[Rfam]
RNA sequence: AGCAUCGCGGAGCUCGACCGCCCACAGCGUUGAUCGUGGAGUACAUCGACCAGUACAGGCAUGAGUUCGGCGUUGAGCCGAUCUGUCGAACGCUGACCGCAGCGGGCACGCAGAUCGCGCCG
Numbered sequence: 001a002g003c004a005u006c007g008c009g010g011a012g013c014u015c016g017a018c019c020g021c022c023c024a025c026a027g028c029g030u031u032g033a034u035c036g037u038g039g040a041g042u043a044c045a046u047c048g049a050c051c052a053g054u055a056c057a058g059g060c061a062u063g064a065g066u067u068c069g070g071c072g073u074u075g076a077g078c079c080g081a082u083c084u085g086u087c088g089a090a091c092g093c094u095g096a097c098c099g100c101a102g103c104g105g106g107c108a109c110g111c112a113g114a115u116c117g118c119g120c121c122g
Base pairs, nucleotide, nucleotide: 007021008020009019010018068122069121070120071119072118079117080116082114083113084112085111086110
RNA: ALIL pseudoknot
Organism: Brachybacterium nesterenkovii